[Rfam]
RNA sequence: UGAACGAGUAGAAGCGUUCAGCCUGCCAUUCGCGCAGCGCCCGGAAAUUGCUCAUGUU
Numbered sequence: 001u002g003a004a005c006g007a008g009u010a011g012a013a014g015c016g017u018u019c020a021g022c023c024u025g026c027c028a029u030u031c032g033c034g035c036a037g038c039g040c041c042c043g044g045a046a047a048u049u050g051c052u053c054a055u056g057u058u
Stems, first nucleotide, its partner, number of pairs: 006053005015043001018045002021040002023037004
This 58-nucleotide RNA sequence from Comamonas sp. 26 belongs to the Rfam family "Xanthine riboswitch aptamer (NMT1 RNA)". Gene Ontology term of the family: purine nucleobase binding. For this family Rfam cites "A bacterial riboswitch class senses xanthine and uric acid to regulate genes associated with purine oxidation" (Yu and Breaker, RNA, 2020). The match comes from Rfam's covariance-model search (45 bits). The source organism's lineage runs through Bacteria, Pseudomonadati, Betaproteobacteria, Burkholderiales and Comamonas. The base pairs follow the family's consensus structure, which is taken from published work.